This 78-nucleotide sequence from Phoenicopterus ruber belongs to the Rfam family "Small nucleolar RNA SNORD69". The family has 11 seed sequences and 524 matches in Rfam 15.1. A reference for the family is Huttenhofer et al. (2001), "RNomics: an experimental approach that identifies 201 candidates for novel, small, non-messenger RNAs in mouse", EMBO J. Rfam describes the family as follows. snoRNA HBII-210 belongs to the C/D family of snoRNAs. It is the human orthologue of the mouse MBII-210 and is predicted to guide the 2'O-ribose methylation of large 28S rRNA on residue G4464.
RNA sequence: UAUGCAAAGCAUAUGAUGAGAAAGCACUGAAACUGACUCUGCAUGAAGUGCAUUCAGUCCAACGCUGAGCUUUGUGUC
Number, nucleotide and partner (000 for none) at each position: 001u000002a077003u076004g075005c074006a073007a072008a071009g070010c069011a000012u000013a000014u000015g000016a000017u000018g000019a000020g000021a000022a000023a000024g000025c000026a000027c000028u000029g000030a000031a000032a000033c000034u000035g000036a000037c000038u000039c000040u000041g000042c000043a000044u000045g000046a000047a000048g000049u000050g000051c000052a000053u000054u000055c000056a000057g000058u000059c000060c000061a000062a000063c000064g000065c000066u000067g000068a000069g010070c009071u008072u007073u006074g005075u004076g003077u002078c000